[Rfam]
RNA: glmS glucosamine-6-phosphate activated ribozyme aptamer
Organism: Robertmurraya siralis
RNA sequence: UGAUUUUUUAAAGCGCCUGAACUAAUUACUGGAGCGAAGGAGUAGUUAGUUGACGAGGAGGAGGUUUAUCGAAUGUUCGGCGGAUACCUCCCGGUUGUAGAUGCCAACCGUCAUUUCUUCUUUAAAACAUCAAGGCGACUUGGUGGACAAAGAGAAGAAAAGCUGCAUCA
Numbered sequence: 001u002g003a004u005u006u007u008u009u010a011a012a013g014c015g016c017c018u019g020a021a022c023u024a025a026u027u028a029c030u031g032g033a034g035c036g037a038a039g040g041a042g043u044a045g046u047u048a049g050u051u052g053a054c055g056a057g058g059a060g061g062a063g064g065u066u067u068a069u070c071g072a073a074u075g076u077u078c079g080g081c082g083g084a085u086a087c088c089u090c091c092c093g094g095u096u097g098u099a100g101a102u103g104c105c106a107a108c109c110g111u112c113a114u115u116u117c118u119u120c121u122u123u124a125a126a127a128c129a130u131c132a133a134g135g136c137g138a139c140u141u142g143g144u145g146g147a148c149a150a151a152g153a154g155a156a157g158a159a160a161a162g163c164u165g166c167a168u169c170a
Base pairs, nucleotide, nucleotide: 020051021050022049023048024047025046026045027044029042060091061090062089063088064087069080070079071078072077092110093109094108095107096106097105114160115159116158117157118156119155120154128145129144130143131142132141133140134139